This 143-nucleotide sequence from Dendrobium nobile belongs to the Rfam family "small nucleolar RNA snoR135".
RNA sequence: UUUGCAGGAGUUAUGUAUCGGUGCUUUGCUUUAUCGCGUGCAUUUGUGACCGAGCGUUCCCUGCUAAAUUGACUUUAAGGGAGAAUGGACUUUUGGGUUAUUUUGCUUUAUUCGAUUACUCAACAAUCUUUCUCCCCAUAUUC
Numbered sequence: 001u002u003u004g005c006a007g008g009a010g011u012u013a014u015g016u017a018u019c020g021g022u023g024c025u026u027u028g029c030u031u032u033a034u035c036g037c038g039u040g041c042a043u044u045u046g047u048g049a050c051c052g053a054g055c056g057u058u059c060c061c062u063g064c065u066a067a068a069u070u071g072a073c074u075u076u077a078a079g080g081g082a083g084a085a086u087g088g089a090c091u092u093u094u095g096g097g098u099u100a101u102u103u104u105g106c107u108u109u110a111u112u113c114g115a116u117u118a119c120u121c122a123a124c125a126a127u128c129u130u131u132c133u134c135c136c137c138a139u140a141u142u143c
Base pairs, nucleotide, nucleotide: 004064005063006062007061008060010058013043014042015041016040017039018038079136080135081134082133083132084131085130087128088127093123094122095121
The family has 6 seed sequences and 837 matches in Rfam 15.1.
The literature on the family includes a 2009 paper in Nucleic Acids Res by Chen and Wu, "Mining small RNA sequencing data: a new approach to identify small nucleolar RNAs in Arabidopsis".